[Rfam]
RNA sequence: GCCAAGUGAGUUGACUUGAUCCUCUGGCGUUCUGUGAGGUGCAACAGCUAAAAGCACGCGAGAGUUCUGAUGGUG
Numbered sequence: 001g002c003c004a005a006g007u008g009a010g011u012u013g014a015c016u017u018g019a020u021c022c023u024c025u026g027g028c029g030u031u032c033u034g035u036g037a038g039g040u041g042c043a044a045c046a047g048c049u050a051a052a053a054g055c056a057c058g059c060g061a062g063a064g065u066u067c068u069g070a071u072g073g074u075g
Stems, first nucleotide, its partner, number of pairs: 001074004
The record is a 75-nucleotide sequence from Tupaia belangeri, which matches "Small nucleolar RNA SNORD28" in Rfam. A search with the family's covariance model found it, with a score of 55 bits. Gene Ontology terms of the family: nucleolus and RNA processing. It is annotated as a C/D-box small nucleolar RNA. The base pairs follow the family's consensus structure, which was predicted with PFOLD. The organism belongs to Tupaia belangeri, within Eukaryota.